Tryptophan operon leader: a 97-nucleotide RNA sequence from Pantoea alhagi. Rfam describes the family as follows. At least 6 amino acid operons are known to be regulated by attenuation. In each a leader sequence of 150-200 bp is found upstream of the first gene in the operon. This leader sequence can assume two different secondary structures known as the terminator and the anti-terminator structure. The family's consensus secondary structure is taken from published work. The organism belongs to Pantoea, within Bacteria.
RNA sequence: AUGGGAUGGUGGCGCGCUUCUGCUGAAGGGCGACGAUGUCACGCAUCUGUAAUGAUCACAUGCUGAUACCUGAGCCCGCCGAUGCGGGCUUUUUUUU
Numbered sequence: 001a002u003g004g005g006a007u008g009g010u011g012g013c014g015c016g017c018u019u020c021u022g023c024u025g026a027a028g029g030g031c032g033a034c035g036a037u038g039u040c041a042c043g044c045a046u047c048u049g050u051a052a053u054g055a056u057c058a059c060a061u062g063c064u065g066a067u068a069c070c071u072g073a074g075c076c077c078g079c080c081g082a083u084g085c086g087g088g089c090u091u092u093u094u095u096u097u
Stems, first nucleotide, its partner, number of pairs: 009042004015035002018032001019030003073090007